The family of this 297-nucleotide RNA from Spermophilus dauricus is "Metazoan signal recognition particle RNA". A search with the family's covariance model found it, with a score of 210 bits. The source organism's lineage runs through Eukaryota, Opisthokonta, Sciuridae, Marmotini and Spermophilus. About the family: The signal recognition particle (SRP) is a universally conserved ribonucleoprotein. It is involved in the co-translational targeting of proteins to membranes. The eukaryotic SRP consists of a 300-nucleotide 7S RNA and six proteins: SRPs 72, 68, 54, 19, 14, and 9. Archaeal SRP consists of a 7S RNA and homologues of the eukaryotic SRP19 and SRP54 proteins. Eukaryotic and archaeal 7S RNAs have very similar secondary structures, as represented by this family. Eight helical elements fold into the Alu and S domains, separated by a long linker region. The Alu domain is thought to mediate the peptide chain elongation retardation function of the SRP. The universally conserved helix which interacts with the SRP54 M domain mediates signal sequence recognition. In eukaryotes and archaea, the SRP19-helix 6 complex is thought to be involved in SRP assembly and stabilises helix 8 for SRP54 binding. The Signal Recognition Particle Database (SRPDB) provides compilations of SRP components, with phylogenetic data and structural illustrations. Many sequences below the threshold for this family are clearly closely related, but are most likely to be SRP RNA derived pseudogenes. The human genome in particular is known to contain a large amount of SRP RNA related sequence, including Alu repeats. While the threshold of this family is set high so as to minimise the number of hits to such regions, it is likely that some remain. The family is grouped with related families in Rfam's "SRP clan". Gene Ontology terms of the family: signal recognition particle, endoplasmic reticulum targeting and SRP-dependent cotranslational protein targeting to membrane, signal sequence recognition. Rfam classes the family as a non-coding RNA gene.
RNA sequence: GCCGGGCGCGGUGGCGCGCGCCUGUAAUCCCAGUUUCGCGGGAGGCUGAGGUCGGUGGAUCGUGGGUGCCCGGGGGUUCGGGGCUGCGGAGCUUUGUGGAGCGGGCGUCCGCACCGGACCCGGCACCAACAUGGUGCUCCCGGGGGAGCCCAGGGGUACCAGGUUGUCUAAGGAGGGGGGACCCGGCCCAGGCCGGACACGGAGCAGGUCAAACUCCCCGUGUUGGGUGGCGGUGGGACCGCGCCUGCGAGCAAGCCUGCAAUUCCGCCCGGGACAUCCCACGAGACCUGGUCUCUU
Numbered sequence: 001g002c003c004g005g006g007c008g009c010g011g012u013g014g015c016g017c018g019c020g021c022c023u024g025u026a027a028u029c030c031c032a033g034u035u036u037c038g039c040g041g042g043a044g045g046c047u048g049a050g051g052u053c054g055g056u057g058g059a060u061c062g063u064g065g066g067u068g069c070c071c072g073g074g075g076g077u078u079c080g081g082g083g084c085u086g087c088g089g090a091g092c093u094u095u096g097u098g099g100a101g102c103g104g105g106c107g108u109c110c111g112c113a114c115c116g117g118a119c120c121c122g123g124c125a126c127c128a129a130c131a132u133g134g135u136g137c138u139c140c141c142g143g144g145g146g147a148g149c150c151c152a153g154g155g156g157u158a159c160c161a162g163g164u165u166g167u168c169u170a171a172g173g174a175g176g177g178g179g180g181a182c183c184c185g186g187c188c189c190a191g192g193c194c195g196g197a198c199a200c201g202g203a204g205c206a207g208g209u210c211a212a213a214c215u216c217c218c219c220g221u222g223u224u225g226g227g228u229g230g231c232g233g234u235g236g237g238a239c240c241g242c243g244c245c246u247g248c249g250a251g252c253a254a255g256c257c258u259g260c261a262a263u264u265c266c267g268c269c270c271g272g273g274a275c276a277u278c279c280c281a282c283g284a285g286a287c288c289u290g291g292u293c294u295c296u297u
Stems, first nucleotide, its partner, number of pairs: 001046003004023007028043003048295008060284006069273006079267005085261005091256004095251001097249001101248008109237002112235005118228009127166004132161009142151003167173002175218005185210004193202003